[Rfam]
RNA sequence: GCUAUACUAAAAAUAGAUAGACGAACAGAUUGCGAGGUUCCACGCGAACCUCAUGUGCCCUGGUAAUUUUCCCUCCUAGUUGCCAGGGUGUUUUU
Numbered sequence: 001g002c003u004a005u006a007c008u009a010a011a012a013a014u015a016g017a018u019a020g021a022c023g024a025a026c027a028g029a030u031u032g033c034g035a036g037g038u039u040c041c042a043c044g045c046g047a048a049c050c051u052c053a054u055g056u057g058c059c060c061u062g063g064u065a066a067u068u069u070u071c072c073c074u075c076c077u078a079g080u081u082g083c084c085a086g087g088g089u090g091u092u093u094u095u
Stems, first nucleotide, its partner, number of pairs: 034052007057089012
atoC RNA: a 95-nucleotide RNA from Pelobacter propionicus. It is one of the family's seed sequences.